RNA sequence: GCCACCGCCGAACGAUGCGCGACGCGAGGGUUGGGGAACCCGGUGACCCGAGCGCAUCGAGACUGGCAAGGGUCCUAGGGAGCCCGCGUCGGUCGUUUCGACGAAGGAG
Numbered sequence: 001g002c003c004a005c006c007g008c009c010g011a012a013c014g015a016u017g018c019g020c021g022a023c024g025c026g027a028g029g030g031u032u033g034g035g036g037a038a039c040c041c042g043g044u045g046a047c048c049c050g051a052g053c054g055c056a057u058c059g060a061g062a063c064u065g066g067c068a069a070g071g072g073u074c075c076u077a078g079g080g081a082g083c084c085c086g087c088g089u090c091g092g093u094c095g096u097u098u099c100g101a102c103g104a105a106g107g108a109g
Base pairs, nucleotide, nucleotide: 006103007102009100010099011098012097013059014058015057016056018054019053020052024048028041029040030039031038032037061094062093063092064091065090066089070085071084072083073082
This 109-nucleotide sequence belongs to the Rfam family "Actinomyces-1 RNA".